Description
MIR1886 microRNA precursor family: a 52-nucleotide RNA from Solanum lycopersicum. The match comes from Rfam's covariance-model search (62 bits). NCBI's taxonomy places the organism under Eukaryota, Spermatophyta, Magnoliopsida, Gunneridae, Solanum subgen. Lycopersicon. Rfam links the family to the GO terms miRNA-mediated post-transcriptional gene silencing and RISC complex.

RNA sequence: UGAGAUGAAAUCAAUAUUUAGAUAUAUGACUUUAUACUGAUUCCAUCUCAUG
Numbered sequence: 001u002g003a004g005a006u007g008a009a010a011u012c013a014a015u016a017u018u019u020a021g022a023u024a025u026a027u028g029a030c031u032u033u034a035u036a037c038u039g040a041u042u043c044c045a046u047c048u049c050a051u052g
Base pairs, nucleotide, nucleotide: 001050002049003048004047005046006045007044009042010041011040012039013038015036016035017034018029019028020027